[Rfam]
RNA sequence: CUUAACUUUAUAACGAAGGAUAGGAAUGAAGAAACCAUGUUUUCUGAAACUAUCCCGUCAAUACUCCUGCAUGCGUUAUGACUGACAGGUGAUAGGGUGUGAAGCACAGGUGGAUUCGGCAGAACGAAGGCUGUAGCCACUCCUUUAGAGAAGGUAUGCCAACGGAUAUGCCGCACGGCUGAAAA
Numbered sequence: 001c002u003u004a005a006c007u008u009u010a011u012a013a014c015g016a017a018g019g020a021u022a023g024g025a026a027u028g029a030a031g032a033a034a035c036c037a038u039g040u041u042u043u044c045u046g047a048a049a050c051u052a053u054c055c056c057g058u059c060a061a062u063a064c065u066c067c068u069g070c071a072u073g074c075g076u077u078a079u080g081a082c083u084g085a086c087a088g089g090u091g092a093u094a095g096g097g098u099g100u101g102a103a104g105c106a107c108a109g110g111u112g113g114a115u116u117c118g119g120c121a122g123a124a125c126g127a128a129g130g131c132u133g134u135a136g137c138c139a140c141u142c143c144u145u146u147a148g149a150g151a152a153g154g155u156a157u158g159c160c161a162a163c164g165g166a167u168a169u170g171c172c173g174c175a176c177g178g179c180u181g182a183a184a185a
Base pairs, nucleotide, nucleotide: 018055019054020053021052022051023050031045033043034042056177057176058175066110067109068108069107070101071100072099073098074097076095077094078093079092081090082089083088117173118172119171120170121169125164126163129160130159131148132147133146
RNA: Group II catalytic intron D1-D4-5
Organism: Lysinibacillus composti